[Rfam]
RNA: U4 spliceosomal RNA
RNA sequence: AUGCAUUCACAGUGGCAGUAUCGUAGCCAAUGAGGUUUAUCCGAGGCGCAAUUAUUGCUAAUUGAAAACUUUUCAUUUCUUCUAGAUUGCUUAACUUAUUGGCAUAUAAGUAUUGAUAAUAAUUUCUGAUGAUUGUUUCUAU
Numbered sequence: 001a002u003g004c005a006u007u008c009a010c011a012g013u014g015g016c017a018g019u020a021u022c023g024u025a026g027c028c029a030a031u032g033a034g035g036u037u038u039a040u041c042c043g044a045g046g047c048g049c050a051a052u053u054a055u056u057g058c059u060a061a062u063u064g065a066a067a068a069c070u071u072u073u074c075a076u077u078u079c080u081u082c083u084a085g086a087u088u089g090c091u092u093a094a095c096u097u098a099u100u101g102g103c104a105u106a107u108a109a110g111u112a113u114u115g116a117u118a119a120u121a122a123u124u125u126c127u128g129a130u131g132a133u134u135g136u137u138u139c140u141a142u
Base pairs, nucleotide, nucleotide: 020052021051023049024048026047027046028045034042035041086120087119088118090115094111095110096109097108098107135142136141